[Rfam]
RNA sequence: AGAUAAAUAAAAGCGCCAGAACUAUAUUUUAUAUAGUUGACGAGGUUGGGGAGUAUCGAAACUUUUCGGCGGGUGCCCCACGGUAUCGCACUACCGUAAACAACUGGCAAAACUAUGGAGCAAUUCGUAGCACAAAUCCAGUUUGGUGUUAAAG
Numbered sequence: 001a002g003a004u005a006a007a008u009a010a011a012a013g014c015g016c017c018a019g020a021a022c023u024a025u026a027u028u029u030u031a032u033a034u035a036g037u038u039g040a041c042g043a044g045g046u047u048g049g050g051g052a053g054u055a056u057c058g059a060a061a062c063u064u065u066u067c068g069g070c071g072g073g074u075g076c077c078c079c080a081c082g083g084u085a086u087c088g089c090a091c092u093a094c095c096g097u098a099a100a101c102a103a104c105u106g107g108c109a110a111a112a113c114u115a116u117g118g119a120g121c122a123a124u125u126c127g128u129a130g131c132a133c134a135a136a137u138c139c140a141g142u143u144u145g146g147u148g149u150u151a152a153a154g
Stems, first nucleotide, its partner, number of pairs: 020038008047080005056069004081096005102143005113130007

The record is a 154-nucleotide sequence from Clostridium paraputrificum, which matches "glmS glucosamine-6-phosphate activated ribozyme aptamer" in Rfam.
The base pairs follow the family's consensus structure, which is taken from published work.
From the family's description: This entry contains a glucosamine-6-phosphate activated ribozyme that is found in the mRNA for GlmS. GlmS is an enzyme that uses fructose-6-phosphate and glutamine to generate glucosamine-6-phosphate. The ribozyme catalyses self cleavage of the glmS mRNA that is thought to regulate GlmS activity.
It scores 103 bits against the family's covariance model.